The record is a 150-nucleotide RNA sequence from Aspergillus ibericus, which matches "A. fumigatus sRNA Afu_254" in Rfam. By type it is a small RNA.

[Rfam]
RNA sequence: CCAAGCACUCUCUACUUCUUCGAACACCAUCCUCGUUUAGUAUAUCCCAUAUACUAUCCUUCAUCAUGUCUCCCUGCGCUUGCAACUGCUGCUCCGGCAACUGCAACUCUUGCUCUUGCAACACUUGCAAGGUAUAUCUUCCCUCUUACU
Numbered sequence: 001c002c003a004a005g006c007a008c009u010c011u012c013u014a015c016u017u018c019u020u021c022g023a024a025c026a027c028c029a030u031c032c033u034c035g036u037u038u039a040g041u042a043u044a045u046c047c048c049a050u051a052u053a054c055u056a057u058c059c060u061u062c063a064u065c066a067u068g069u070c071u072c073c074c075u076g077c078g079c080u081u082g083c084a085a086c087u088g089c090u091g092c093u094c095c096g097g098c099a100a101c102u103g104c105a106a107c108u109c110u111u112g113c114u115c116u117u118g119c120a121a122c123a124c125u126u127g128c129a130a131g132g133u134a135u136a137u138c139u140u141c142c143c144u145c146u147u148a149c150u
Base pairs, nucleotide, nucleotide: 075099076098077097082092083091084090103128104127105126112119113118
The literature on the family includes a 2008 paper in Nucleic Acids Res by Jochl et al., "Small ncRNA transcriptome analysis from Aspergillus fumigatus suggests a novel mechanism for regulation of protein synthesis". It scores 76 bits against the family's covariance model. The family's consensus secondary structure was predicted with WAR. The organism belongs to Aspergillus ibericus, within Eukaryota.